[Rfam]
RNA sequence: AUGUGCUUCCGGCUGCCGAGUGCGGCUUCCGGAGCAUCGGACACACAUUGUGCCUGGGAAGAUCUGGGCACUUCAGGGCGUU
Numbered sequence: 001a002u003g004u005g006c007u008u009c010c011g012g013c014u015g016c017c018g019a020g021u022g023c024g025g026c027u028u029c030c031g032g033a034g035c036a037u038c039g040g041a042c043a044c045a046c047a048u049u050g051u052g053c054c055u056g057g058g059a060a061g062a063u064c065u066g067g068g069c070a071c072u073u074c075a076g077g078g079c080g081u082u
Base pairs, nucleotide, nucleotide: 004036005035006034007033009032010031011030012029015026016025017024018023050071051070052069053068054067055066056064